A member of the RNA family "Small nucleolar RNA snR60/Z15/Z230/Z193/J17" from Esox lucius, 84 nucleotides long. The family has 23 seed sequences and 3,592 matches in Rfam 15.1. It is annotated as a C/D-box small nucleolar RNA. The family is grouped with related families in Rfam's "SNORD77 clan".
Nucleotides: 084
Stems, first nucleotide, its partner, number of pairs: 004081005
Number, partner (000 for none) and nucleotide at each position: 001000a002000u003000g004081a005080u006079a007078u008077a009000a010000u011000g012000a013000u014000g015000a016000c017000c018000g019000c020000a021000u022000a023000g024000u025000u026000c027000a028000g029000c030000a031000g032000a033000a034000u035000a036000a037000c038000c039000a040000u041000g042000a043000a044000g045000a046000a047000c048000a049000a050000u051000c052000a053000g054000c055000a056000u057000u058000g059000u060000c061000u062000u063000u064000c065000g066000c067000u068000c069000c070000u071000a072000u073000c074000u075000g076000a077008u078007g079006u080005g081004u082000c083000a084000a